[Rfam]
Nucleotides: 079
Stems, first nucleotide, its partner, number of pairs: 008022004041064009
Number, partner (000 for none) and nucleotide at each position: 001000u002000g003000u004000c005000g006000c007000g008022g009021c010020c011019c012000u013000c014000c015000u016000u017000g018000a019011g020010g021009g022008c023000g024000u025000u026000u027000c028000c029000u030000c031000c032000c033000u034000a035000g036000a037000c038000u039000u040000g041064g042063g043062c044061c045060g046059c047058u048057u049056g050000u051000u052000c053000g054000u055000u056049c057048g058047a059046g060045c061044g062043g063042c064041c065000c066000u067000u068000u069000u070000u071000c072000u073000u074000u075000g076000a077000c078000c079000a